[Rfam]
RNA sequence: UAUUUCAUGAUAAACUUAUUGCGUAGAAAAGUUGAGACGGUGGCUAAACCCUUAUAGAAAGUGGGGUGAUGCCUAUGAUUAAUAAGUAUUGUUCCACUAGAAAGGAAUAGUAUGUCAGUGUUCCAGGCACUAACAUUAGCAAUUAGUUUUGCUUUGUUAGUAAUUGAAAUAUUGAAAUUUAA
Dot-bracket structure: .......................................(.(((..................(((((((.((.............)).))))))..)................((..((((.....))))..))................))).)....((..(.((....)).).))....
The family of this 182-nucleotide RNA from Pediococcus acidilactici is "Listeria sRNA rli28".
A reference for the family is Michels et al. (1991), "Muscarinic cholinergic control of vasopressin secretion from the acute hypothalamoneurohypophysial explant", Neuroendocrinology.
Rfam 15.1 lists 345 matches to the family in 181 species.